[Rfam]
RNA: ZMP/ZTP riboswitch aptamer (pfl RNA motif)
Organism: Solihabitans fulvus
RNA sequence: GUGCCGAGUCGUGACUGGCGUUCAGGUGGGGCACCACCGGGGAGCGGCUUGGCCGGCGCGGAGCCGGCCGCGAGCCGCGCGCCUGGGCAGAUCGG
Numbered sequence: 001g002u003g004c005c006g007a008g009u010c011g012u013g014a015c016u017g018g019c020g021u022u023c024a025g026g027u028g029g030g031g032c033a034c035c036a037c038c039g040g041g042g043a044g045c046g047g048c049u050u051g052g053c054c055g056g057c058g059c060g061g062a063g064c065c066g067g068c069c070g071c072g073a074g075c076c077g078c079g080c081g082c083c084u085g086g087g088c089a090g091a092u093c094g095g
Stems, first nucleotide, its partner, number of pairs: 003053010015041002017083005026037004074088003